[Rfam]
RNA: Molybdenum/Tungsten riboswitch aptamer (Moco RNA motif)
Organism: Lachnospiraceae bacterium 5_1_57FAA
RNA sequence: UCAAUUGCAGGAAUUCGAGCCUGACUGUCUAAAGUAGCAAAAGAUGCCAUGACAGCAGGCCAAUGGGUGCUUUUUGAAAAGAGGGCGCCUUCCAUAUUUGAAAAGAAUAUCCGCAGACAUCGAU
Numbered sequence: 001u002c003a004a005u006u007g008c009a010g011g012a013a014u015u016c017g018a019g020c021c022u023g024a025c026u027g028u029c030u031a032a033a034g035u036a037g038c039a040a041a042a043g044a045u046g047c048c049a050u051g052a053c054a055g056c057a058g059g060c061c062a063a064u065g066g067g068u069g070c071u072u073u074u075u076g077a078a079a080a081g082a083g084g085g086c087g088c089c090u091u092c093c094a095u096a097u098u099u100g101a102a103a104a105g106a107a108u109a110u111c112c113g114c115a116g117a118c119a120u121c122g123a124u
Stems, first nucleotide, its partner, number of pairs: 006115001011110001013108004019060005025055005034047003065090011091101002